Small nucleolar RNA R72: an 85-nucleotide sequence from Prunus armeniaca. Its family is annotated with nucleolus and RNA processing in the Gene Ontology. Rfam's curators write: snoR72 is a C/D box small nucleolar RNA, which acts as a methylation guide for 25S ribosomal RNA in Arabidopsis.
RNA sequence: GUGCAAAUGACGAGAAUUACCUUUGGUUUGAGAAGCUUGCAAUGCGAGCGAUGUUGCACCUCAUACUUCCAUGACUCUGAUGCAU
Numbered sequence: 001g002u003g004c005a006a007a008u009g010a011c012g013a014g015a016a017u018u019a020c021c022u023u024u025g026g027u028u029u030g031a032g033a034a035g036c037u038u039g040c041a042a043u044g045c046g047a048g049c050g051a052u053g054u055u056g057c058a059c060c061u062c063a064u065a066c067u068u069c070c071a072u073g074a075c076u077c078u079g080a081u082g083c084a085u
Stems, first nucleotide, its partner, number of pairs: 001085005035049004
Dot-bracket structure: (((((.............................((((.......))))...............................)))))
Lineage of the source: Eukaryota > Euphyllophyta > Magnoliopsida > Amygdaloideae > Prunus.